[Rfam]
RNA sequence: GAAUGCACUAACUGUAAGUCACUCUGGAUAAGAGUGUCUGCUAAAUGACCAAAA
Number, nucleotide and partner (000 for none) at each position: 001g000002a000003a000004u000005g000006c000007a000008c000009u000010a000011a000012c000013u043014g041015u040016a039017a000018g000019u000020c036021a035022c034023u033024c032025u031026g000027g000028a000029u000030a000031a025032g024033a023034g022035u021036g020037u000038c000039u016040g015041c014042u000043a013044a000045a000046u000047g000048a000049c000050c000051a000052a000053a000054a000